[Rfam]
RNA sequence: ACAACUCCUUCGUUAAUGUAUUCACGGGCGUCUUACUUGGUAACGAGUAAGAGCAUCACUGGGUGAAUUGCUGGAACCUCCUGAGAGCUCUUCUACCACAGCGGAACUGGAAACGGUAAACGUGAGGGUCUGAAAAAGAAGAGAUUGGACAAUCAGCAGCGAAGCCCCUGUCGGGAAACCGUGGGGAACGUUCAACGACUAGGAUACACCGUCUAAGGCACACGCUAUGACGAUGAAAUCCGUAGGGUGUUACGAAACGUAACAUUCGAAGUGCCCAGCUCCUGCGAACGCUGCAGGAUGAAGAUAUAGUCUGACCUUUAUAGAAAUAUAUAG
Numbered sequence: 001a002c003a004a005c006u007c008c009u010u011c012g013u014u015a016a017u018g019u020a021u022u023c024a025c026g027g028g029c030g031u032c033u034u035a036c037u038u039g040g041u042a043a044c045g046a047g048u049a050a051g052a053g054c055a056u057c058a059c060u061g062g063g064u065g066a067a068u069u070g071c072u073g074g075a076a077c078c079u080c081c082u083g084a085g086a087g088c089u090c091u092u093c094u095a096c097c098a099c100a101g102c103g104g105a106a107c108u109g110g111a112a113a114c115g116g117u118a119a120a121c122g123u124g125a126g127g128g129u130c131u132g133a134a135a136a137a138g139a140a141g142a143g144a145u146u147g148g149a150c151a152a153u154c155a156g157c158a159g160c161g162a163a164g165c166c167c168c169u170g171u172c173g174g175g176a177a178a179c180c181g182u183g184g185g186g187a188a189c190g191u192u193c194a195a196c197g198a199c200u201a202g203g204a205u206a207c208a209c210c211g212u213c214u215a216a217g218g219c220a221c222a223c224g225c226u227a228u229g230a231c232g233a234u235g236a237a238a239u240c241c242g243u244a245g246g247g248u249g250u251u252a253c254g255a256a257a258c259g260u261a262a263c264a265u266u267c268g269a270a271g272u273g274c275c276c277a278g279c280u281c282c283u284g285c286g287a288a289c290g291c292u293g294c295a296g297g298a299u300g301a302a303g304a305u306a307u308a309g310u311c312u313g314a315c316c317u318u319u320a321u322a323g324a325a326a327u328a329u330a331u332a333g
Base pairs, nucleotide, nucleotide: 001034004031005030007028008027009026037046038045039044059278060277061276062275064273065272069158070157071156072155073154074153079149080148081147083145159191160190165185166184167183195312197311198310199309200308201307280298281297282296283295284294285293286292319330320329321328322327
RNA: Group I catalytic intron
Organism: Sporosarcina sp. BI001-red